[Rfam]
RNA sequence: GAAGGAGCAAUAGAACCCCUUUUCAUAAAAUCAUAAAAAGGGCUUCUAUUGCUCCUUCAUUC
Numbered sequence: 001g002a003a004g005g006a007g008c009a010a011u012a013g014a015a016c017c018c019c020u021u022u023u024c025a026u027a028a029a030a031u032c033a034u035a036a037a038a039a040g041g042g043c044u045u046c047u048a049u050u051g052c053u054c055c056u057u058c059a060u061u062c
Stems, first nucleotide, its partner, number of pairs: 001058014019040005028034001
Source information:
A member of the RNA family "Plastid-psbA-3 3UTR RNA" from Tripterygium wilfordii, 62 nucleotides long. A reference for the family is Richter et al. (2023), "Retrograde signaling in plants: A critical review focusing on the GUN pathway and beyond", Plant Commun. It scores 48 bits against the family's covariance model. Lineage of the source: Eukaryota > Streptophyta > Mesangiospermae > eudicotyledons > Tripterygium. Plastid psbA-3 is a non-coding RNA (ncRNA) present in plastids. It was identified in inverted repeat sequences in the 3 prime untranslate region (3UTR) of photosystem II quinone-binding protein (psbA).